RNA sequence: GUAAGUAUGAAAGGCGAUUGCAAGUCUACUUGACUUGAGGAAAGUCCGAGCUCCAUAGGGCAGGAUGCCGGCUAACGGCCGGCGUGGGUGACCAUAGGGAAUAGUGCCACAGAAAAGUAAACCGCCACCUUCGGGUGGUAAGGGUGGAACGGUCGCGGUAAGAGCGCACCAGGUACAUGGUAACAUGUAUGCUCGGUAAACCCCAUCCGGAGCAAGGCCGAAUAGGAAAGGGUUAAGGGUUGCCCGCCUACCUUUCGGGUUGUGCCGCUUGAGCGUAUAGGCAACUAUGCGCCUAGAAAGAUAAUCGCCACUGCGAAAGCAGGACAGAACUCGGCUUAUUGAUUGCUUGCUCAA
Numbered sequence: 001g002u003a004a005g006u007a008u009g010a011a012a013g014g015c016g017a018u019u020g021c022a023a024g025u026c027u028a029c030u031u032g033a034c035u036u037g038a039g040g041a042a043a044g045u046c047c048g049a050g051c052u053c054c055a056u057a058g059g060g061c062a063g064g065a066u067g068c069c070g071g072c073u074a075a076c077g078g079c080c081g082g083c084g085u086g087g088g089u090g091a092c093c094a095u096a097g098g099g100a101a102u103a104g105u106g107c108c109a110c111a112g113a114a115a116a117g118u119a120a121a122c123c124g125c126c127a128c129c130u131u132c133g134g135g136u137g138g139u140a141a142g143g144g145u146g147g148a149a150c151g152g153u154c155g156c157g158g159u160a161a162g163a164g165c166g167c168a169c170c171a172g173g174u175a176c177a178u179g180g181u182a183a184c185a186u187g188u189a190u191g192c193u194c195g196g197u198a199a200a201c202c203c204c205a206u207c208c209g210g211a212g213c214a215a216g217g218c219c220g221a222a223u224a225g226g227a228a229a230g231g232g233u234u235a236a237g238g239g240u241u242g243c244c245c246g247c248c249u250a251c252c253u254u255u256c257g258g259g260u261u262g263u264g265c266c267g268c269u270u271g272a273g274c275g276u277a278u279a280g281g282c283a284a285c286u287a288u289g290c291g292c293c294u295a296g297a298a299a300g301a302u303a304a305u306c307g308c309c310a311c312u313g314c315g316a317a318a319g320c321a322g323g324a325c326a327g328a329a330c331u332c333g334g335c336u337u338a339u340u341g342a343u344u345g346c347u348u349g350c351u352c353a354a
Stems, first nucleotide, its partner, number of pairs: 001350007011339001013309007021037006042337003046334005051212004058245004063208005068082005083097001084095004098203002104201002106197003122143002124139006151170003155167003172192001173190007216266003219262001226256006237249004273292008
A member of the RNA family "Bacterial RNase P class A" from Veillonella sp. oral taxon 780, 354 nucleotides long. The family's consensus secondary structure is taken from published work. It scores 280 bits against the family's covariance model.